[Rfam]
RNA sequence: UGCUAUGAUGGUGUAAUUUGCGUCUGAGCCCGUGAACAGUGACGGUAGCCUGCCGUCUUUAAGCUGUCACAUGGUAUUGAUGUGUCUUGAGUUCUGAGCA
Numbered sequence: 001u002g003c004u005a006u007g008a009u010g011g012u013g014u015a016a017u018u019u020g021c022g023u024c025u026g027a028g029c030c031c032g033u034g035a036a037c038a039g040u041g042a043c044g045g046u047a048g049c050c051u052g053c054c055g056u057c058u059u060u061a062a063g064c065u066g067u068c069a070c071a072u073g074g075u076a077u078u079g080a081u082g083u084g085u086c087u088u089g090a091g092u093u094c095u096g097a098g099c100a
Stems, first nucleotide, its partner, number of pairs: 001100003021082004032070003039064002041057005

A member of the RNA family "Small nucleolar RNA SNORD16" from Liparis tanakae, 100 nucleotides long. Clan: SNORD16 clan. NCBI's taxonomy places the organism under Eukaryota, Opisthokonta, Teleostomi, Euteleosteomorpha, Liparis. Its family is annotated with RNA processing and nucleolus in the Gene Ontology. The base pairs follow the family's consensus structure, which was predicted with PFOLD.